[Rfam]
RNA sequence: AUUGCUUCAUAAUGGUGAACUCUCUUAGAUUAUACAAAGUGAGAGAUGUUCAAGUUUCCGGAGCAAAUAUUAACCUGGCCAGAAUUUAACAGCUCUGUGUUUAAAUUUUACUAUUUUCACAGUGUUACCUGUCUUCUGGUAUAUUU
Numbered sequence: 001a002u003u004g005c006u007u008c009a010u011a012a013u014g015g016u017g018a019a020c021u022c023u024c025u026u027a028g029a030u031u032a033u034a035c036a037a038a039g040u041g042a043g044a045g046a047u048g049u050u051c052a053a054g055u056u057u058c059c060g061g062a063g064c065a066a067a068u069a070u071u072a073a074c075c076u077g078g079c080c081a082g083a084a085u086u087u088a089a090c091a092g093c094u095c096u097g098u099g100u101u102u103a104a105a106u107u108u109u110a111c112u113a114u115u116u117u118c119a120c121a122g123u124g125u126u127a128c129c130u131g132u133c134u135u136c137u138g139g140u141a142u143a144u145u146u
Stems, first nucleotide, its partner, number of pairs: 003065006016052005021046005078140007091126003095122005
Source information: This 146-nucleotide sequence from Arabidopsis lyrata belongs to the Rfam family "small nucleolar RNA snoR137". Rfam classes the family as an H/ACA-box small nucleolar RNA. The organism belongs to Arabidopsis lyrata, within Eukaryota. The literature on the family includes a 2009 paper in Nucleic Acids Res by Chen and Wu, "Mining small RNA sequencing data: a new approach to identify small nucleolar RNAs in Arabidopsis". The match comes from Rfam's covariance-model search (169 bits). Pairs were carried over by alignment from the consensus structure, which was predicted with RNAalifold.